The record is an 85-nucleotide RNA from Microcaecilia unicolor, which matches "mir-449 microRNA precursor family" in Rfam.
Pairs were carried over by alignment from the consensus structure, which was predicted with RNAalifold.
The family is grouped with related families in Rfam's "mir-34 clan".

RNA sequence: UGUUUUUGUUGGGUAGGCAGUGCCUUACAAGAUGGAAGAGAAUUUCUCCUCCAUCUUGUAAAGCACUGCCUACCCAACAAAAACA
Numbered sequence: 001u002g003u004u005u006u007u008g009u010u011g012g013g014u015a016g017g018c019a020g021u022g023c024c025u026u027a028c029a030a031g032a033u034g035g036a037a038g039a040g041a042a043u044u045u046c047u048c049c050u051c052c053a054u055c056u057u058g059u060a061a062a063g064c065a066c067u068g069c070c071u072a073c074c075c076a077a078c079a080a081a082a083a084c085a
Base pairs, nucleotide, nucleotide: 001085002084003083004082005081006080007079008078009077010076011075012074013073015071016070017069018068019067020066021065022064023063027059028058029057030056031055032054033053034052035051036050
It scores 61 bits against the family's covariance model.